The record is a 92-nucleotide sequence from Nyssa sinensis, which matches "Small nucleolar RNA Z122" in Rfam.
The base pairs follow the family's consensus structure, which was predicted with PFOLD.
The literature on the family includes a 2003 paper in Nucleic Acids Res by Chen et al., "The high diversity of snoRNAs in plants: identification and comparative study of 120 snoRNA genes from Oryza sativa".
Gene Ontology terms of the family: nucleolus and RNA processing.
The match comes from Rfam's covariance-model search (63 bits).
Taxonomically the source falls in Nyssa (Eukaryota, Streptophytina, Gunneridae, Nyssaceae).
[Rfam]
RNA sequence: UUUGGGAAAUGAUGAAAAGAUUUAAACAUGUUGUCAGAGGCUCAGUUAUGUGUGCUCUGUUGAACAAUUUUGCACGUCAGUCUGAUCCCAAA
Numbered sequence: 001u002u003u004g005g006g007a008a009a010u011g012a013u014g015a016a017a018a019g020a021u022u023u024a025a026a027c028a029u030g031u032u033g034u035c036a037g038a039g040g041c042u043c044a045g046u047u048a049u050g051u052g053u054g055c056u057c058u059g060u061u062g063a064a065c066a067a068u069u070u071u072g073c074a075c076g077u078c079a080g081u082c083u084g085a086u087c088c089c090a091a092a
Stems, first nucleotide, its partner, number of pairs: 001092007
Dot-bracket structure: (((((((..............................................................................)))))))